[Rfam]
Nucleotides: 114
Base pairs, nucleotide, nucleotide: 001114002113004111008107009106010105011104014101015100018097021095022094037077038076040074049063050062051061
Number, partner (000 for none) and nucleotide at each position: 001114g002113u003000u004111g005000g006000u007000u008107a009106c010105g011104g012000c013000g014101a015100c016000a017000u018097g019000g020000c021095g022094c023000c024000c025000a026000a027000a028000a029000c030000a031000u032000u033000u034000c035000c036000u037077g038076g039000a040074a041000a042000a043000u044000u045000u046000g047000u048000c049063g050062g051061c052000g053000c054000u055000c056000u057000u058000u059000g060000c061051g062050c063049c064000c065000u066000g067000g068000c069000u070000g071000g072000a073000g074040u075000a076038u077037u078000a079000a080000c081000c082000a083000u084000c085000g086000c087000u088000u089000u090000a091000c092000c093000a094022g095021u096000a097018c098000c099000g100015g101014u102000a103000a104011u105010c106009g107008u108000c109000a110000g111004c112000a113002a114001c